[Rfam]
RNA sequence: UGCCUGUGAUGACUUGCCAUGCUAAUACCGACCCCCCCAGCAGUGCAUGUGGCUCUGCCCCAGGGAGGAAUGAGUUAAAACUUCCUUCUCAUGGAGACCUGAGGCCC
Numbered sequence: 001u002g003c004c005u006g007u008g009a010u011g012a013c014u015u016g017c018c019a020u021g022c023u024a025a026u027a028c029c030g031a032c033c034c035c036c037c038c039a040g041c042a043g044u045g046c047a048u049g050u051g052g053c054u055c056u057g058c059c060c061c062a063g064g065g066a067g068g069a070a071u072g073a074g075u076u077a078a079a080a081c082u083u084c085c086u087u088c089u090c091a092u093g094g095a096g097a098c099c100u101g102a103g104g105c106c107c
Stems, first nucleotide, its partner, number of pairs: 002105003041057003045053001
RNA: Small nucleolar RNA U6-53/MBII-28
Organism: Pelodiscus sinensis